[Rfam]
RNA sequence: UGUCGCUGCUAACCAGCACGGGCGUCGGAGAAUAUCCACGCCCGUGCGAUCAUGUUAAAGGCAAUGAAAAAUGG
Number, nucleotide and partner (000 for none) at each position: 001u000002g013003u000004c000005g000006c000007u000008g000009c000010u000011a000012a000013c002014c000015a000016g047017c046018a045019c044020g043021g042022g041023c040024g039025u000026c000027g037028g036029a035030g000031a000032a000033u000034a000035u029036c028037c027038a000039c024040g023041c022042c021043c020044g019045u018046g017047c016048g000049a000050u000051c000052a000053u000054g000055u000056u000057a000058a000059a000060g000061g000062c000063a000064a000065u000066g000067a000068a000069a000070a000071a000072u000073g000074g000
The family of this 74-nucleotide RNA sequence from Tatumella morbirosei is "tpke11". The source organism's lineage runs through Bacteria, Pseudomonadati, Pseudomonadota, Gammaproteobacteria and Tatumella. For this family Rfam cites "A survey of small RNA-encoding genes in Escherichia coli" (Hershberg et al., Nucleic Acids Res, 2003). The match comes from Rfam's covariance-model search (60 bits). About the family: In Yersinia located in ICR upstream dnaJ (chaperone)gene. The family's RNA type in Rfam is small RNA. The family's consensus secondary structure was predicted with WAR.